[Rfam]
RNA sequence: AGUAAGUUACGCCUUGCGAUGGGAUGGGAUCCGAAGCCCUCCGAGAGGCUCUCCCAUCCAACUCCUAUUCCGACACGUCCUCGUCGUGCAGAGCGGUAACAUGUGCCUCCAUAUAUUCUAGCUUGGGGUCAUGGGCUAGAUCCAACCCCUUGGGCGGAUGGUGGCAUACGGCGAACCAGGAAGGG
Numbered sequence: 001a002g003u004a005a006g007u008u009a010c011g012c013c014u015u016g017c018g019a020u021g022g023g024a025u026g027g028g029a030u031c032c033g034a035a036g037c038c039c040u041c042c043g044a045g046a047g048g049c050u051c052u053c054c055c056a057u058c059c060a061a062c063u064c065c066u067a068u069u070c071c072g073a074c075a076c077g078u079c080c081u082c083g084u085c086g087u088g089c090a091g092a093g094c095g096g097u098a099a100c101a102u103g104u105g106c107c108u109c110c111a112u113a114u115a116u117u118c119u120a121g122c123u124u125g126g127g128g129u130c131a132u133g134g135g136c137u138a139g140a141u142c143c144a145a146c147c148c149c150u151u152g153g154g155c156g157g158a159u160g161g162u163g164g165c166a167u168a169c170g171g172c173g174a175a176c177c178a179g180g181a182a183g184g185g
Base pairs, nucleotide, nucleotide: 011094012093014091015090016089017088022059023058024057025056026055027054028053029052031048032047063185064184065183066182068181069180071179075087076086077085079096080095100170102168103167104166105165106164107163109161110160115159116158117157118156123145124144125143126142127141147154148153
RNA: drz-agam-2-2 ribozyme